Archaeal large subunit ribosomal RNA: a 458-nucleotide part of an RNA from Staphylothermus hellenicus. For this family Rfam cites "Crystal structure of the ribosome at 5.5 A resolution" (Yusupov et al., Science, 2001).
RNA sequence: CCCGCCGAAGUGGCUCUCAGGCCAGCCCCGCCAGAGGCUGGCUGCGGGGUAGAGCUACGGAUUGGGGGUGCAGGGGGCGAAAGCCCCCGGCCCCCUAUCCAACUCCGAACCCGUGGCCGCCGUAGAAGGCGGGAGUGGGGCUCCCCGGGGUAAGCCCGGGGGCCGAGAGGGGAACAACCCAGACCGGGGUUAAGGCCCCAAAGUGCCGGCUAAGUGCCAAUCCCAAAGGGCGUCCCGCGGCUUAGACAGCGGGGAGGUGGGCCUAACAGCAGCCACCCUCUAAGGAGUGCGUAACAGCUCACCCGCCGAGCCGCGGGGCCCCGAAGAUUGGUCGGGGCUCAAGCCGGCCGCCGAGACCCCGGGGCACGGCUCCGAUGGAGCCGUGAUCCGGUAGGCGGGCGCCGGGUCGGGGCAGAAGCCGGGCCGAGAGGUCCGGUGGACCCGAUCCGGGUGUGGAU
Numbered sequence: 001c002c003c004g005c006c007g008a009a010g011u012g013g014c015u016c017u018c019a020g021g022c023c024a025g026c027c028c029c030g031c032c033a034g035a036g037g038c039u040g041g042c043u044g045c046g047g048g049g050u051a052g053a054g055c056u057a058c059g060g061a062u063u064g065g066g067g068g069u070g071c072a073g074g075g076g077g078c079g080a081a082a083g084c085c086c087c088c089g090g091c092c093c094c095c096u097a098u099c100c101a102a103c104u105c106c107g108a109a110c111c112c113g114u115g116g117c118c119g120c121c122g123u124a125g126a127a128g129g130c131g132g133g134a135g136u137g138g139g140g141c142u143c144c145c146c147g148g149g150g151u152a153a154g155c156c157c158g159g160g161g162g163c164c165g166a167g168a169g170g171g172g173a174a175c176a177a178c179c180c181a182g183a184c185c186g187g188g189g190u191u192a193a194g195g196c197c198c199c200a201a202a203g204u205g206c207c208g209g210c211u212a213a214g215u216g217c218c219a220a221u222c223c224c225a226a227a228g229g230g231c232g233u234c235c236c237g238c239g240g241c242u243u244a245g246a247c248a249g250c251g252g253g254g255a256g257g258u259g260g261g262c263c264u265a266a267c268a269g270c271a272g273c274c275a276c277c278c279u280c281u282a283a284g285g286a287g288u289g290c291g292u293a294a295c296a297g298c299u300c301a302c303c304c305g306c307c308g309a310g311c312c313g314c315g316g317g318g319c320c321c322c323g324a325a326g327a328u329u330g331g332u333c334g335g336g337g338c339u340c341a342a343g344c345c346g347g348c349c350g351c352c353g354a355g356a357c358c359c360c361g362g363g364g365c366a367c368g369g370c371u372c373c374g375a376u377g378g379a380g381c382c383g384u385g386a387u388c389c390g391g392u393a394g395g396c397g398g399g400c401g402c403c404g405g406g407u408c409g410g411g412g413c414a415g416a417a418g419c420c421g422g423g424c425c426g427a428g429a430g431g432u433c434c435g436g437u438g439g440a441c442c443c444g445a446u447c448c449g450g451g452u453g454u455g456g457a458u
Stems, first nucleotide, its partner, number of pairs: 001399006011024005026135001027133006036121003040118008052106001053104002060099003064095006073088006139164003143161006169180003184362007194352003203349001205348006228322003232319010249306005255279003260274003280284001285300001289298002363389002365385007400453001402450010418437008